[Rfam]
RNA: SAM riboswitch aptamer (S box leader)
Organism: Marinigracilibium pacificum
RNA sequence: AACUUAUCAAGAAAGGUGGAGGGAACGGCCCUGCGAAACCUUAGCAACCCUUGCGAAAGUAAGAAGGUGCUAAAUCCAUCCUGAAAUAUUCAGGAGAGAUAAGUC
Dot-bracket structure: .(((((((....(((((...(((.[.[[)))......)))))((((.((((((......))))..))))))...(]].]((((((...))))))..)))))))).